[Rfam]
RNA sequence: AAUAUAGUUUGUUAGGUGAGGCUCCUAUACAGAUAUACGCUGCUGCCCGGAAACAUCGAGAGAUGCCAAUGGGUCAACAAAUACUACCGAAUUAAGGUUUUAUUUAAUGCAGCUGAGCUUAUGUUCUACGCUGUAUAGUGCUAAAACUCAACGAAUUUUACUGU
Numbered sequence: 001a002a003u004a005u006a007g008u009u010u011g012u013u014a015g016g017u018g019a020g021g022c023u024c025c026u027a028u029a030c031a032g033a034u035a036u037a038c039g040c041u042g043c044u045g046c047c048c049g050g051a052a053a054c055a056u057c058g059a060g061a062g063a064u065g066c067c068a069a070u071g072g073g074u075c076a077a078c079a080a081a082u083a084c085u086a087c088c089g090a091a092u093u094a095a096g097g098u099u100u101u102a103u104u105u106a107a108u109g110c111a112g113c114u115g116a117g118c119u120u121a122u123g124u125u126c127u128a129c130g131c132u133g134u135a136u137a138g139u140g141c142u143a144a145a146a147c148u149c150a151a152c153g154a155a156u157u158u159u160a161c162u163g164u
Stems, first nucleotide, its partner, number of pairs: 005160003010155001011152002013095001015148003020142003025138008039113005045074005054065004080104004086098003115126003

M-box riboswitch aptamer (ykoK leader): a 164-nucleotide RNA sequence from Clostridium sp. USBA 49.
The source organism's lineage runs through Bacteria, Bacillati, Eubacteriales, Clostridiaceae and Clostridium.
Rfam describes the family as follows. M-box riboswitch, also know as ykoK leader is described as a metaloregulatory RNA that sense divalent metals and function as a genetic control element of genes related to divalent metal transport in bacteria. It was first reported upstream of the B.subtilis ykoK gene and genes with related functions in other bacteria.
It scores 150 bits against the family's covariance model.
The base pairs follow the family's consensus structure.